[Rfam]
Nucleotides: 114
Base pairs, nucleotide, nucleotide: 001114002113004111005110008107009106010105011104014101015100016099018097020095021094037077038076040074050062051061
Number, partner (000 for none) and nucleotide at each position: 001114g002113u003000a004111g005110g006000c007000u008107a009106u010105g011104g012000g013000g014101a015100c016099a017000u018097g019000c020095g021094u022000c023000c024000g025000g026000u027000g028000a029000c030000c031000g032000u033000c034000u035000g036000g037077g038076g039000c040074a041000a042000g043000c044000u045000u046000g047000u048000c049000g050062g051061c052000u053000c054000a055000u056000u057000g058000u059000g060000u061051g062050c063000a064000a065000u066000c067000g068000c069000c070000g071000g072000c073000g074040u075000a076038c077037u078000u079000a080000c081000c082000a083000u084000u085000g086000c087000u088000c089000u090000g091000c092000c093000a094021g095020u096000c097018c098000c099016u100015g101014u102000g103000a104011u105010u106009g107008u108000u109000u110005c111004u112000a113002a114001u
Background
This 114-nucleotide sequence from Paragonimus skrjabini miyazakii belongs to the Rfam family "Potassium channel RNA editing signal". By type it is a cis-regulatory element. The base pairs follow the family's consensus structure, which is taken from published work. Taxonomically the source falls in Paragonimus (Eukaryota, Opisthokonta, Platyhelminthes, Troglotremata). Rfam's curators write: This family represents a group of sequences related to the human potassium channel Kv1.1 hairpin element which directs the efficient modification of an adenosine to inosine by an adenosine deaminase acting on RNA (ADAR).